[Rfam]
Shown here is a 268-nucleotide RNA sequence from Enterobacteriaceae bacterium strain FGI 57, a member of the family "SraG RNA".
From the family's description: This RNA was discovered in E. coli during a large scale screen. Evidence was found for specific cleavage of this RNA.
RNA sequence: CUUCUUUGCAUCCUCGCGACUAAUGACAACCCUAACCCUUCAUGGGUGAAGCCUCUCAUUAGCCGCGCGAACCUCUGCAAUGAAGAACAUGUACAACAACAAUACAUUAUACCCGUUAUCUUUCAAAAUACCGCUGCGUUAGCAAAGUGCGUUGUAAAUUCAUUUACGUGGCACCGAUACUUUCGCUAAAGCGCUAUUUAUUUCGGGUACAUUUUCUCUUAACUAGCUGACAUCUGGUGGAAAAAAGGGGCCAUAAAGGCCCCUCUUU
Numbered sequence: 001c002u003u004c005u006u007u008g009c010a011u012c013c014u015c016g017c018g019a020c021u022a023a024u025g026a027c028a029a030c031c032c033u034a035a036c037c038c039u040u041c042a043u044g045g046g047u048g049a050a051g052c053c054u055c056u057c058a059u060u061a062g063c064c065g066c067g068c069g070a071a072c073c074u075c076u077g078c079a080a081u082g083a084a085g086a087a088c089a090u091g092u093a094c095a096a097c098a099a100c101a102a103u104a105c106a107u108u109a110u111a112c113c114c115g116u117u118a119u120c121u122u123u124c125a126a127a128a129u130a131c132c133g134c135u136g137c138g139u140u141a142g143c144a145a146a147g148u149g150c151g152u153u154g155u156a157a158a159u160u161c162a163u164u165u166a167c168g169u170g171g172c173a174c175c176g177a178u179a180c181u182u183u184c185g186c187u188a189a190a191g192c193g194c195u196a197u198u199u200a201u202u203u204c205g206g207g208u209a210c211a212u213u214u215u216c217u218c219u220u221a222a223c224u225a226g227c228u229g230a231c232a233u234c235u236g237g238u239g240g241a242a243a244a245a246a247g248g249g250g251c252c253a254u255a256a257a258g259g260c261c262c263c264u265c266u267u268u
Stems, first nucleotide, its partner, number of pairs: 001085004008078003015069004020062007091223002247263006